[Rfam]
RNA: mir-9058 microRNA precursor family
Organism: Equus asinus
RNA sequence: GUGGUUGCCAGAUGGGUGCUCUCUACUAGUGCUGUGCAGAGGCUUUCGCUGAGGCUUCUGCAAGACUGUAGAGUUUCCCCCCUGGGCCACAGCGCCAG
Number, nucleotide and partner (000 for none) at each position: 001g000002u097003g096004g095005u094006u000007g087008c086009c085010a083011g082012a000013u000014g081015g080016g079017u000018g077019c000020u000021c073022u072023c071024u070025a069026c068027u000028a067029g066030u000031g000032c064033u063034g000035u000036g061037c060038a059039g058040a000041g056042g055043c054044u053045u052046u051047c000048g000049c000050u000051g046052a045053g044054g043055c042056u041057u000058c039059u038060g037061c036062a000063a033064g032065a000066c029067u028068g026069u025070a024071g023072a022073g021074u000075u000076u000077c018078c000079c016080c015081c014082c011083u010084g000085g009086g008087c007088c000089a000090c000091a000092g000093c000094g005095c004096c003097a002098g000